[Rfam]
Record summary
Group II catalytic intron D1-D4-2: a 117-nucleotide RNA sequence from Caenibius tardaugens. NCBI's taxonomy places the organism under Bacteria, Pseudomonadati, Alphaproteobacteria, Caenibius, Caenibius tardaugens. From the family's description: Group II introns are found in rRNA, tRNA and mRNA of organelles in fungi, plants and protists, and also in mRNA in bacteria.
RNA sequence: GAGGGUAGGCCCCUCGAAGCUGACCGUCAGGGGCAGGCUUCAAACCACUGCAAGCUGCGAUGGUAAAGAGCCGUGGUGGUGAGCGUUGGCGCUGAUCUUGAGCGAAGUGAGAUCGGU
Numbered sequence: 001g002a003g004g005g006u007a008g009g010c011c012c013c014u015c016g017a018a019g020c021u022g023a024c025c026g027u028c029a030g031g032g033g034c035a036g037g038c039u040u041c042a043a044a045c046c047a048c049u050g051c052a053a054g055c056u057g058c059g060a061u062g063g064u065a066a067a068g069a070g071c072c073g074u075g076g077u078g079g080u081g082a083g084c085g086u087u088g089g090c091g092c093u094g095a096u097c098u099u100g101a102g103c104g105a106a107g108u109g110a111g112a113u114c115g116g117u
Stems, first nucleotide, its partner, number of pairs: 001015005016041006024033002046116001048091001051088003054080002057077002061073004095113006

About this RNA:
A reference for the family is Chu et al. (2001), "Control of branch-site choice by a group II intron", EMBO J.